Shown here is a 69-nucleotide sequence from Brenthis ino, a member of the family "mir-33 microRNA precursor family".
[Rfam]
RNA sequence: CGAGAGUGCAUUGUAGUUGCAUUGCACUUGUACUUCAUAAUGUGCAAUGUUCCUACGAGGCAAAUCUCG
Numbered sequence: 001c002g003a004g005a006g007u008g009c010a011u012u013g014u015a016g017u018u019g020c021a022u023u024g025c026a027c028u029u030g031u032a033c034u035u036c037a038u039a040a041u042g043u044g045c046a047a048u049g050u051u052c053c054u055a056c057g058a059g060g061c062a063a064a065u066c067u068c069g
Base pairs, nucleotide, nucleotide: 001069002068003067004066006065007062008061009060011058012057013056014055015054016053019050021048022047023046024045025044026043027042